[Rfam]
RNA sequence: AAUCCAUGAGGAGUAGUGAAAGGUCCGACUCCCAGGGUCCCCUCCCUAUACCCCUGGCAUCCCCUUGGGCUCCAGUAGUGCCGUGAUGGGCGGAAGGGUGGCUGGUGCUGGGCAACGCCCCAGGGCUGUGUUCCUUGGUGAGAACCCCCCAGCCAGCUGCUAAGGGGGUUCAUUGUUGGGGCUGCUGGUACCUGUGGUUAUGGUCUGACAUUGCAAGCUGAGAUC
Numbered sequence: 001a002a003u004c005c006a007u008g009a010g011g012a013g014u015a016g017u018g019a020a021a022g023g024u025c026c027g028a029c030u031c032c033c034a035g036g037g038u039c040c041c042c043u044c045c046c047u048a049u050a051c052c053c054c055u056g057g058c059a060u061c062c063c064c065u066u067g068g069g070c071u072c073c074a075g076u077a078g079u080g081c082c083g084u085g086a087u088g089g090g091c092g093g094a095a096g097g098g099u100g101g102c103u104g105g106u107g108c109u110g111g112g113c114a115a116c117g118c119c120c121c122a123g124g125g126c127u128g129u130g131u132u133c134c135u136u137g138g139u140g141a142g143a144a145c146c147c148c149c150c151a152g153c154c155a156g157c158u159g160c161u162a163a164g165g166g167g168g169u170u171c172a173u174u175g176u177u178g179g180g181g182c183u184g185c186u187g188g189u190a191c192c193u194g195u196g197g198u199u200a201u202g203g204u205c206u207g208a209c210a211u212u213g214c215a216a217g218c219u220g221a222g223a224u225c
Stems, first nucleotide, its partner, number of pairs: 002224003035206005043181004048176002051167004055104004061090003065086003069082001070080001105154001107153006116142001118140001120138006